[Rfam]
RNA sequence: GAACUGGAUAGAACCCCCUGAAUCAAAUAUUGUAGUGAUUCGCGGGGUUCUAUCCA
Numbered sequence: 001g002a003a004c005u006g007g008a009u010a011g012a013a014c015c016c017c018c019u020g021a022a023u024c025a026a027a028u029a030u031u032g033u034a035g036u037g038a039u040u041c042g043c044g045g046g047g048u049u050c051u052a053u054c055c056a
Base pairs, nucleotide, nucleotide: 007054008053009052010051011050012049013048014047015046016045017044019042020041021040022039023038024037025036